RNA: c-di-GMP-I riboswitch aptamer
RNA sequence: UAUAUUUAAGGGCAACCAUUAGCAAAAGUUAAUGUGCGCAAAACUACCAGCCUAAGUGUUUUACAUACGGUCGUGGGGUUACAAAG
Numbered sequence: 001u002a003u004a005u006u007u008a009a010g011g012g013c014a015a016c017c018a019u020u021a022g023c024a025a026a027a028g029u030u031a032a033u034g035u036g037c038g039c040a041a042a043a044c045u046a047c048c049a050g051c052c053u054a055a056g057u058g059u060u061u062u063a064c065a066u067a068c069g070g071u072c073g074u075g076g077g078g079u080u081a082c083a084a085a086g
Base pairs, nucleotide, nucleotide: 012039013038017034018033019032020031021030023028042080043079044078045077047076048075049074050071051070052069057065058064059063